The record is an 80-nucleotide sequence from Asanoa hainanensis, which matches "SAH (S-adenosyl-L-homocysteine) riboswitch aptamer" in Rfam. It scores 38 bits against the family's covariance model. The family's consensus secondary structure is taken from published work.

RNA sequence: CCGGUCGAGAGGCGCUGCGACGGACAACGAGGUCCGCCACGCUCGACCAGCCCAUUGAUUCCCAAGGGCGCCUCCUGUCA
Numbered sequence: 001c002c003g004g005u006c007g008a009g010a011g012g013c014g015c016u017g018c019g020a021c022g023g024a025c026a027a028c029g030a031g032g033u034c035c036g037c038c039a040c041g042c043u044c045g046a047c048c049a050g051c052c053c054a055u056u057g058a059u060u061c062c063c064a065a066g067g068g069c070g071c072c073u074c075c076u077g078u079c080a
Stems, first nucleotide, its partner, number of pairs: 003048006021036005